[Rfam]
RNA: TPP riboswitch aptamer (THI element)
Organism: Ahniella affigens
Nucleotides: 107
Stems, first nucleotide, its partner, number of pairs: 006095005011057004016051001017044005063088004069082004
Number, partner (000 for none) and nucleotide at each position: 001000c002000c003000u004000c005000c006095g007094a008093a009092g010091c011057g012056g013055g014054g015000g016051u017044g018043c019042c020041g021040g022000c023000c024000c025000g026000c027000c028000u029000g030000a031000a032000c033000g034000g035000g036000g037000u038000c039000g040021c041020c042019g043018g044017c045000u046000g047000a048000g049000a050000a051016a052000c053000a054014c055013c056012c057011u058000u059000c060000g061000a062000a063088c064087c065086u066085g067000a068000u069082c070081c071080g072079u073000c074000u075000g076000a077000c078000c079072g080071c081070g082069g083000c084000g085066u086065a087064g088063g089000g090000a091010g092009c093008u094007u095006c096000a097000u098000c099000g100000g101000u102000u103000u104000c105000g106000g107000c